[Rfam]
RNA sequence: AGGCUGUGAUGAACAUGAUUCUGACACCUCUUAUGUUAGCAGAUUAGAUCCCUGCUAUGAUUCGAACUGGAUCUCUGAGCCU
Numbered sequence: 001a002g003g004c005u006g007u008g009a010u011g012a013a014c015a016u017g018a019u020u021c022u023g024a025c026a027c028c029u030c031u032u033a034u035g036u037u038a039g040c041a042g043a044u045u046a047g048a049u050c051c052c053u054g055c056u057a058u059g060a061u062u063c064g065a066a067c068u069g070g071a072u073c074u075c076u077g078a079g080c081c082u
Base pairs, nucleotide, nucleotide: 001082002081003080004079
Dot-bracket structure: ((((..........................................................................))))